[Rfam]
RNA sequence: UUAUGGGUGUGCAUUUUACAGCGCUUUUUUGAGAAAGCGCUGUAAUAUGAGACCCAUAAUAUGAAAUUAUGGGUGGGCAUUUUACAGCGCUUUUCUGAGAAAGCGCUGUAAUAUGCACACCCAUAUAUGA
Numbered sequence: 001u002u003a004u005g006g007g008u009g010u011g012c013a014u015u016u017u018a019c020a021g022c023g024c025u026u027u028u029u030u031g032a033g034a035a036a037g038c039g040c041u042g043u044a045a046u047a048u049g050a051g052a053c054c055c056a057u058a059a060u061a062u063g064a065a066a067u068u069a070u071g072g073g074u075g076g077g078c079a080u081u082u083u084a085c086a087g088c089g090c091u092u093u094u095c096u097g098a099g100a101a102a103g104c105g106c107u108g109u110a111a112u113a114u115g116c117a118c119a120c121c122c123a124u125a126u127a128u129g130a
Stems, first nucleotide, its partner, number of pairs: 003057006019042009069124007077116003085108010
A member of the RNA family "Small nucleolar RNA SNORA69" from Cicer arietinum, 130 nucleotides long. Taxonomically the source falls in Cicer (Eukaryota, Streptophyta, eudicotyledons, fabids). The family's RNA type in Rfam is H/ACA-box small nucleolar RNA.